The family of this 84-nucleotide sequence from Photobacterium ganghwense is "Pseudomonas sRNA P9". A reference for the family is Livny et al. (2006), "Identification of 17 Pseudomonas aeruginosa sRNAs and prediction of sRNA-encoding genes in 10 diverse pathogens using the bioinformatic tool sRNAPredict2", Nucleic Acids Res. The base pairs follow the family's consensus structure, which was predicted with RNAalifold. A search with the family's covariance model found it, with a score of 52 bits. This small RNA (sRNA) was computationally identified in the genome of the opportunistic pathogen Pseudomonas aeruginosa and its expression verified by northern blot analysis. P9 appears to be conserved in several Pseudomonas species in addition to Bordetella spp. In both Pseudomonas and Bordetella spp P9 appears to be located upstream of a predicted threonine dehydratase gene. P9 has a predicted Rho independent terminator at the 3' end but the function of P9 is unknown. NCBI's taxonomy places the organism under Bacteria, Pseudomonadati, Pseudomonadota, Vibrionaceae, Photobacterium.
[Rfam]
RNA sequence: CGAAUUAUUACCAUCAUUCCAUAGGAAUGGUGGGUUUUGGGCUGUUUGUCGAAAAGUAAGAAACCCGCCCAGGAGGCGGGUUUC
Numbered sequence: 001c002g003a004a005u006u007a008u009u010a011c012c013a014u015c016a017u018u019c020c021a022u023a024g025g026a027a028u029g030g031u032g033g034g035u036u037u038u039g040g041g042c043u044g045u046u047u048g049u050c051g052a053a054a055a056g057u058a059a060g061a062a063a064c065c066c067g068c069c070c071a072g073g074a075g076g077c078g079g080g081u082u083u084c
Stems, first nucleotide, its partner, number of pairs: 011033007061083009